[Rfam]
RNA sequence: AUGGCUUAAACUCAAUGAGUAAGGAAACUAAUGCUCUACCUGACAAGUAGGGUUGCUCACUGGGUCUAGUGACCUGUGGGUUUUAUAUUUUUAACGGAGGUGGAAUGGCCUUCUUCUUAGAAACCUGCUACAUUAGGGUGACUAUUAGGGGGUCGGUCCCCGCC
Numbered sequence: 001a002u003g004g005c006u007u008a009a010a011c012u013c014a015a016u017g018a019g020u021a022a023g024g025a026a027a028c029u030a031a032u033g034c035u036c037u038a039c040c041u042g043a044c045a046a047g048u049a050g051g052g053u054u055g056c057u058c059a060c061u062g063g064g065u066c067u068a069g070u071g072a073c074c075u076g077u078g079g080g081u082u083u084u085a086u087a088u089u090u091u092u093a094a095c096g097g098a099g100g101u102g103g104a105a106u107g108g109c110c111u112u113c114u115u116c117u118u119a120g121a122a123a124c125c126u127g128c129u130a131c132a133u134u135a136g137g138g139u140g141a142c143u144a145u146u147a148g149g150g151g152g153u154c155g156g157u158c159c160c161c162g163c164c
Stems, first nucleotide, its partner, number of pairs: 005023004033053007055081006099164005107158004114148002118144003123139004